[Rfam]
RNA: Lysine riboswitch aptamer
Organism: Alkalicoccobacillus porphyridii
RNA sequence: ACAUGAGGUAGAGGCGCGAACCUUAUCAGUAUGUUAUUUGAGCGGCAGCUAUGAGAAUAAUUGAAAGGAAGCUUCGCCGAAAUGAUAUCUUAUGCAACAGGAUAUCAUUGGGUCAGUGUUGAAUAAAUACUGGACUGUCACAGCCAUUUGGUUGUGGAGGACUAUCAUGAAU
Numbered sequence: 001a002c003a004u005g006a007g008g009u010a011g012a013g014g015c016g017c018g019a020a021c022c023u024u025a026u027c028a029g030u031a032u033g034u035u036a037u038u039u040g041a042g043c044g045g046c047a048g049c050u051a052u053g054a055g056a057a058u059a060a061u062u063g064a065a066a067g068g069a070a071g072c073u074u075c076g077c078c079g080a081a082a083u084g085a086u087a088u089c090u091u092a093u094g095c096a097a098c099a100g101g102a103u104a105u106c107a108u109u110g111g112g113u114c115a116g117u118g119u120u121g122a123a124u125a126a127a128u129a130c131u132g133g134a135c136u137g138u139c140a141c142a143g144c145c146a147u148u149u150g151g152u153u154g155u156g157g158a159g160g161a162c163u164a165u166c167a168u169g170a171a172u
Stems, first nucleotide, its partner, number of pairs: 007166005016077005022071003033061007081109011110136002113133008138157007